[Rfam]
RNA sequence: GCAAAUAAAGAUUUGCUUCGCAGGAGAGAUAGCGCCAUCACCUCUUCUAAGAAGUUAACUAGUGGUGACGGUAUCUCUCCUACGUAGCAAUCCUUAUAUAUGC
Numbered sequence: 001g002c003a004a005a006u007a008a009a010g011a012u013u014u015g016c017u018u019c020g021c022a023g024g025a026g027a028g029a030u031a032g033c034g035c036c037a038u039c040a041c042c043u044c045u046u047c048u049a050a051g052a053a054g055u056u057a058a059c060u061a062g063u064g065g066u067g068a069c070g071g072u073a074u075c076u077c078u079c080c081u082a083c084g085u086a087g088c089a090a091u092c093c094u095u096a097u098a099u100a101u102g103c
Base pairs, nucleotide, nucleotide: 001103002102003101005099006098007097008095009094010093013090014089015088016087017086019084020083022081023080024079025078026077027076028075029074030073031072033070034069036067037066038065039064040063041062044054045053046052047051
Dot-bracket structure: (((.((((((..(((((.((.((((((((((.((.((((((..((((...)))).......)))))).)).)))))))))).)).)))))..))).))).)))
The record is a 103-nucleotide RNA sequence from Arabidopsis thaliana, which matches "MIR391 microRNA precursor family" in Rfam. Taxonomically the source falls in Arabidopsis (Eukaryota, Streptophytina, rosids, malvids). The sequence is in the family's curated seed alignment. The family has 2 seed sequences and 21 matches in Rfam 15.1. Its family is annotated with RISC complex and miRNA-mediated post-transcriptional gene silencing in the Gene Ontology.